[Rfam]
RNA sequence: CCUCCCGUUCUUGGCGGGCCCCGGCCGCACCGUGCCCGGGCCUGUAAUACACGGAGGAAGAGCAGCGACCGGCGCGAAGUCUUCGGUGCCCGCGGUCGCCUCCGCCGGUCCUACCCUCACGUGCCGGGACAGGC
Numbered sequence: 001c002c003u004c005c006c007g008u009u010c011u012u013g014g015c016g017g018g019c020c021c022c023g024g025c026c027g028c029a030c031c032g033u034g035c036c037c038g039g040g041c042c043u044g045u046a047a048u049a050c051a052c053g054g055a056g057g058a059a060g061a062g063c064a065g066c067g068a069c070c071g072g073c074g075c076g077a078a079g080u081c082u083u084c085g086g087u088g089c090c091c092g093c094g095g096u097c098g099c100c101u102c103c104g105c106c107g108g109u110c111c112u113a114c115c116c117u118c119a120c121g122u123g124c125c126g127g128g129a130c131a132g133g134c
Stems, first nucleotide, its partner, number of pairs: 001057005015044006023036003070126006089108002092105004
The record is a 134-nucleotide sequence from Accipiter nisus, which matches "Small nucleolar RNA SNORA57" in Rfam. The family's consensus secondary structure was predicted with PFOLD. NCBI's taxonomy places the organism under Eukaryota, Opisthokonta, Metazoa, Archosauria, Accipiter. The literature on the family includes a 2003 paper in Nucleic Acids Res by Vitali et al., "Identification of 13 novel human modification guide RNAs". Rfam links the family to the GO terms RNA processing and nucleolus. From the family's description: U99 belongs to the H/ACA class of snoRNAs which are thought to guide the sites of modification of uridines to pseudouridines, the target for this family is unknown.